Rfam assigns this 45-nucleotide RNA sequence from Granulicella sp. 5B5 to the family "Acido-Lenti-1 RNA". The match comes from Rfam's covariance-model search (50 bits). The source organism's lineage runs through Bacteria, Pseudomonadati, Acidobacteriota, Terriglobales and Granulicella. The base pairs follow the family's consensus structure, which is taken from published work. The family's RNA type in Rfam is small RNA.

[Rfam]
RNA sequence: CCUAGGCCUUCGGCCUAGGCUGAUAUAUGUCGCGCCUUUGGCGCU
Numbered sequence: 001c002c003u004a005g006g007c008c009u010u011c012g013g014c015c016u017a018g019g020c021u022g023a024u025a026u027a028u029g030u031c032g033c034g035c036c037u038u039u040g041g042c043g044c045u
Stems, first nucleotide, its partner, number of pairs: 001019008032044005